[Rfam]
RNA sequence: CUGCUCCACGGCGAUGGAGCUCGCCUGGAACGCCCGGAAGGGCUGAUGGCUCCUACCAAAAU
Numbered sequence: 001c002u003g004c005u006c007c008a009c010g011g012c013g014a015u016g017g018a019g020c021u022c023g024c025c026u027g028g029a030a031c032g033c034c035c036g037g038a039a040g041g042g043c044u045g046a047u048g049g050c051u052c053c054u055a056c057c058a059a060a061a062u
Stems, first nucleotide, its partner, number of pairs: 010025004016053006032043004
Fluoride riboswitch aptamer (crcB RNA motif): a 62-nucleotide sequence from Desulfofundulus salinus. NCBI's taxonomy places the organism under Bacteria, Bacillota, Clostridia, Peptococcaceae, Desulfofundulus. It scores 50 bits against the family's covariance model.